Shown here is a 155-nucleotide sequence from Xaviernesmea oryzae, a member of the family "speF leader". For this family Rfam cites "A survey of sRNA families in alpha-proteobacteria" (del Val et al., RNA Biol, 2012). A search with the family's covariance model found it, with a score of 102 bits. Taxonomically the source falls in Xaviernesmea (Bacteria, Pseudomonadati, Alphaproteobacteria, Hyphomicrobiales). Rfam describes the family as follows. This family is a putative regulatory RNA structure that is found upstream of the speF gene encoding ornithine decarboxylase in Agrobacterium tumefaciens and other alpha-proteobacteria.

RNA sequence: UUCCGGCUUUCCAUCAGCCGGGGUUACUGAAGAGGCACACCUUCAUUGCCGGACGUGCGGUCGGGUCCCCCGUCCAAUCCAUGGCAGACAUAGCCGGAUCGAAGCCUGAGGCAGGCUUUGCUCCACCGUUUGCGCGAUUCAUGCGCCCGCUUGGU
Number, nucleotide and partner (000 for none) at each position: 001u023002u022003c021004c020005g019006g018007c017008u016009u000010u000011c000012c000013a000014u000015c000016a008017g007018c006019c005020g004021g003022g002023g001024u000025u000026a000027c000028u000029g000030a000031a000032g000033a000034g050035g049036c048037a047038c000039a000040c000041c000042u000043u000044c000045a000046u000047u037048g036049c035050c034051g000052g000053a000054c000055g000056u000057g135058c134059g133060g000061u000062c000063g000064g000065g000066u000067c000068c000069c000070c000071c000072g000073u000074c000075c000076a000077a000078u000079c000080c000081a000082u000083g095084g094085c000086a000087g000088a000089c000090a000091u000092a000093g000094c084095c083096g000097g000098a000099u000100c000101g000102a000103a117104g116105c115106c114107u113108g000109a000110g000111g000112c000113a107114g106115g105116c104117u103118u000119u000120g000121c000122u000123c000124c000125a000126c000127c000128g000129u000130u000131u000132g000133c059134g058135c057136g000137a000138u000139u000140c000141a000142u000143g000144c000145g000146c000147c000148c000149g000150c000151u000152u000153g000154g000155u000